This 152-nucleotide RNA sequence from Klebsiella michiganensis belongs to the Rfam family "sok antitoxin (CssrC)".
The literature on the family includes a 2007 paper in Mol Microbiol by Kawano et al., "An antisense RNA controls synthesis of an SOS-induced toxin evolved from an antitoxin".
Lineage of the source: Bacteria > Pseudomonadati > Pseudomonadota > Gammaproteobacteria > Klebsiella.
Rfam's curators write: Also identified in Shigella as CssrC.
[Rfam]
RNA sequence: CGGUGCUUGAGGCUGUCUGCCUCAUGUCGCCAUGUGGCAGAUAGAAGAAAGCCCCGAAGGUCAAUUUUCAUUAACCAACGAGGCCUCUAAUCUUGCGUGACAACACGAUUAUAGCCUCCCAAAAGCGAAGGAGGCAACUUUGUUUUACAAAG
Numbered sequence: 001c002g003g004u005g006c007u008u009g010a011g012g013c014u015g016u017c018u019g020c021c022u023c024a025u026g027u028c029g030c031c032a033u034g035u036g037g038c039a040g041a042u043a044g045a046a047g048a049a050a051g052c053c054c055c056g057a058a059g060g061u062c063a064a065u066u067u068u069c070a071u072u073a074a075c076c077a078a079c080g081a082g083g084c085c086u087c088u089a090a091u092c093u094u095g096c097g098u099g100a101c102a103a104c105a106c107g108a109u110u111a112u113a114g115c116c117u118c119c120c121a122a123a124a125g126c127g128a129a130g131g132a133g134g135c136a137a138c139u140u141u142g143u144u145u146u147a148c149a150a151a152g
Stems, first nucleotide, its partner, number of pairs: 002054002005052004013044009023034001026031001056079001060075002063072003080118005088111005094105002122146003126142002